RNA sequence: AUGUCUGAAUGAUGAAACAAAGUGUUGGUAGGGACAUCUGAGUAGUACUGAUGAAUUGCCAACCUCUCUGACCUGGGCAU
Numbered sequence: 001a002u003g004u005c006u007g008a009a010u011g012a013u014g015a016a017a018c019a020a021a022g023u024g025u026u027g028g029u030a031g032g033g034a035c036a037u038c039u040g041a042g043u044a045g046u047a048c049u050g051a052u053g054a055a056u057u058g059c060c061a062a063c064c065u066c067u068c069u070g071a072c073c074u075g076g077g078c079a080u
Stems, first nucleotide, its partner, number of pairs: 001080005
Small nucleolar RNA SNORD74: an 80-nucleotide RNA sequence from Lepisosteus oculatus. Taxonomically the source falls in Lepisosteus (Eukaryota, Opisthokonta, Eumetazoa, Craniata). Pairs were carried over by alignment from the consensus structure, which was predicted with PFOLD. Its family is annotated with RNA processing and nucleolus in the Gene Ontology. Clan: SNORD74 clan.